[Rfam]
RNA sequence: UAACUUUAUGGCGAUGGAGUUCGCCUAAUGCUGUGAAGCUAAUGGCUCCUACCUGACA
Numbered sequence: 001u002a003a004c005u006u007u008a009u010g011g012c013g014a015u016g017g018a019g020u021u022c023g024c025c026u027a028a029u030g031c032u033g034u035g036a037a038g039c040u041a042a043u044g045g046c047u048c049c050u051a052c053c054u055g056a057c058a
Stems, first nucleotide, its partner, number of pairs: 010025004016049006030039003

Background: Rfam assigns this 58-nucleotide RNA from Desulfofarcimen acetoxidans to the family "Fluoride riboswitch aptamer (crcB RNA motif)". The base pairs follow the family's consensus structure, which is taken from published work. The literature on the family includes a 2012 paper in Science by Baker et al., "Widespread genetic switches and toxicity resistance proteins for fluoride".